[Rfam]
RNA: Staphylococcus-1 RNA
RNA sequence: UUAAUGAAACUGACCGCUUUCAAAGAAAGCCGACUAACUAAUCUUCUGUAAUGCUAUUUAUGAGGAUUGCCCUUUGAGGUUUAUAGCAAUAGGCCACCCUAUGGUUAGUCAAUGAUUUUGUUGA
Numbered sequence: 001u002u003a004a005u006g007a008a009a010c011u012g013a014c015c016g017c018u019u020u021c022a023a024a025g026a027a028a029g030c031c032g033a034c035u036a037a038c039u040a041a042u043c044u045u046c047u048g049u050a051a052u053g054c055u056a057u058u059u060a061u062g063a064g065g066a067u068u069g070c071c072c073u074u075u076g077a078g079g080u081u082u083a084u085a086g087c088a089a090u091a092g093g094c095c096a097c098c099c100u101a102u103g104g105u106u107a108g109u110c111a112a113u114g115a116u117u118u119u120g121u122u123g124a
Stems, first nucleotide, its partner, number of pairs: 001124009016030005032110007040068007053087005089102005